RNA sequence: AAGCAGCAUCAGUACAGCGAACGAGGAAAAUCAAGUUCCUUGCCUCGCUGGCGAUGUAGCAAGA
Dot-bracket structure: ..((.((((.....(((((..((((((.........))))))...)))))...)))).))....

The family of this 64-nucleotide sequence from Angomonas deanei is "Trypanosomatid snoRNA TB11Cs5H2". The source organism's lineage runs through Eukaryota, Euglenozoa, Trypanosomatidae, Strigomonadinae and Angomonas. The family's RNA type in Rfam is H/ACA-box small nucleolar RNA.